RNA sequence: AUGAAUGCCUGUCCGCCCCAUUUUUCUCGCUGCUGCGCCUGUAGUCGACACGAUGCGUGCGUGCAUCUGACGCGCAGCGCGACGGUUGAAGCCGAGCCGCUCGCCCCUGUUCGGGGGAAGCGGCUUUUUUC
Number, nucleotide and partner (000 for none) at each position: 001a000002u000003g000004a000005a000006u000007g038008c037009c035010u000011g033012u032013c000014c029015g028016c000017c000018c000019c000020a000021u000022u000023u000024u000025u000026c000027u000028c015029g014030c000031u000032g012033c011034u000035g009036c000037g008038c007039c000040u081041g080042u079043a000044g000045u000046c072047g071048a000049c069050a000051c000052g000053a000054u065055g064056c063057g062058u000059g000060c000061g000062u057063g056064c055065a054066u000067c000068u000069g049070a000071c047072g046073c000074g000075c000076a000077g000078c000079g042080c041081g040082a000083c094084g093085g092086u091087u000088g000089a000090a000091g086092c085093c084094g083095a125096g124097c123098c122099g121100c120101u000102c000103g000104c117105c116106c115107c114108u000109g000110u000111u000112c000113g000114g107115g106116g105117g104118a000119a000120g100121c099122g098123g097124c096125u095126u000127u000128u000129u000130u000131c000

Overview
The family of this 131-nucleotide RNA from Burkholderia singularis is "Burkholderia sRNA 2". The match comes from Rfam's covariance-model search (104 bits). Upregulated in response to iron ion depletion. Predicted targets include MerR family transcriptional regulator. For this family Rfam cites "Identification of novel small RNAs in Burkholderia cenocepacia KC-01 expressed under iron limitation and oxidative stress conditions" (Ghosh et al., Microbiology, 2017). The family's consensus secondary structure was predicted with RNAfold.